[Rfam]
RNA: drz-agam-2-2 ribozyme
Organism: Anopheles stephensi
RNA sequence: CUCCUUAUCCGAUAUGAUAAUGGAUCGGCGGACAAUAAAGGUUGUCUGUACCCUGAUCCUGCUCAUAACGCCUACGAUAUAGAAGUUGGUAUCAUGUCUAUCCAAGUAUCUGAACUUGGGUUCACCGGGAAGUAUCAACCCCUUUGUGAGAACGGGUGACAUGGCCAAAUUGAGAGGA
Numbered sequence: 001c002u003c004c005u006u007a008u009c010c011g012a013u014a015u016g017a018u019a020a021u022g023g024a025u026c027g028g029c030g031g032a033c034a035a036u037a038a039a040g041g042u043u044g045u046c047u048g049u050a051c052c053c054u055g056a057u058c059c060u061g062c063u064c065a066u067a068a069c070g071c072c073u074a075c076g077a078u079a080u081a082g083a084a085g086u087u088g089g090u091a092u093c094a095u096g097u098c099u100a101u102c103c104a105a106g107u108a109u110c111u112g113a114a115c116u117u118g119g120g121u122u123c124a125c126c127g128g129g130a131a132g133u134a135u136c137a138a139c140c141c142c143u144u145u146g147u148g149a150g151a152a153c154g155g156g157u158g159a160c161a162u163g164g165c166c167a168a169a170u171u172g173a174g175a176g177g178a
Stems, first nucleotide, its partner, number of pairs: 011087003015083001022053002024045001026041001057178004062174004068080001070078001072089002092164007100157004109152001111150001116138004121134001140148001142146001